The record is a 134-nucleotide RNA sequence from Paenalicyclobacillus macrosporangiidus, which matches "c-di-AMP riboswitch aptamer (ydaO/yuaA leader)" in Rfam. It scores 111 bits against the family's covariance model. From the family's description: This family represents a conserved RNA structure found upstream of the ydaO and yuaA genes in Bacillus subtilis and related genes in other bacteria.
[Rfam]
RNA sequence: UCUCAUUUUCCGCUGAAUUCCGCAAGGAAGCGGGGGACCCAUUCUUCGGGGGUGAGUCCGGCGUCUGCCGGUAGGGCUAUCCUCUUCUGGCCCGAACCCGUCAGCUAACCUCGUAAGCGUAAGAGAGGAGAGAG
Numbered sequence: 001u002c003u004c005a006u007u008u009u010c011c012g013c014u015g016a017a018u019u020c021c022g023c024a025a026g027g028a029a030g031c032g033g034g035g036g037a038c039c040c041a042u043u044c045u046u047c048g049g050g051g052g053u054g055a056g057u058c059c060g061g062c063g064u065c066u067g068c069c070g071g072u073a074g075g076g077c078u079a080u081c082c083u084c085u086u087c088u089g090g091c092c093c094g095a096a097c098c099c100g101u102c103a104g105c106u107a108a109c110c111u112c113g114u115a116a117g118c119g120u121a122a123g124a125g126a127g128g129a130g131a132g133a134g
Base pairs, nucleotide, nucleotide: 011119012118013117014116018029019028020027030114031113032112033111034110035109040049050099051098052097058071059070060069061068074093075092076091077090